[Rfam]
Nucleotides: 227
Base pairs, nucleotide, nucleotide: 002226003225004224005223006222007221008220009219010218011217012216013215014214016212017211018210019209020208021207022206023205024204025203027201028200029199030198031197032196033195037191038190039189040188041187042186043185044184045183046182050178051177052176053175054174055173056172057171058170059169060168061167062166066164067163069161070160071159074155081146087142088141089140092137093132094131095130096129097128098127099126100125103122108116
Number, partner (000 for none) and nucleotide at each position: 001000c002226g003225g004224c005223c006222g007221u008220a009219g010218a011217a012216u013215a014214a015000g016212u017211u018210a019209u020208u021207c022206u023205a024204u025203g026000a027201c028200c029199a030198c031197u032196u033195u034000g035000a036000g037191u038190u039189a040188c041187g042186a043185u044184a045183a046182u047000u048000a049000c050178u051177g052176u053175a054174c055173u056172a057171a058170u059169u060168u061167a062166u063000g064000a065000a066164a067163u068000u069161a070160u071159g072000g073000u074155a075000a076000c077000u078000c079000c080000c081146u082000c083000a084000u085000a086000a087142g088141u089140g090000a091000u092137u093132u094131a095130c096129u097128a098127u099126a100125a101000c102000a103122u104000u105000a106000c107000g108116g109000u110000a111000a112000a113000u114000a115000u116108c117000a118000u119000c120000u121000u122103g123000a124000a125100u126099u127098a128097u129096a130095g131094u132093a133000a134000c135000c136000c137092a138000u139000g140089u141088g142087u143000c144000g145000u146081a147000a148000a149000u150000g151000u152000g153000u154000a155074u156000u157000g158000u159071c160070a161069u162000u163067a164066u165000c166062g167061u168060a169059a170058a171057u172056u173055g174054g175053u176052a177051c178050a179000a180000a181000c182046a183045u184044u185043a186042u187041c188040g189039u190038a191037a192000a193000u194000c195033a196032a197031g198030g199029u200028g201027g202000c203025c204024a205023u206022a207021g208020a209019a210018u211017a212016a213000g214014u215013u216012a217011u218010u219009u220008u221007g222006u223005g224004g225003u226002c227000a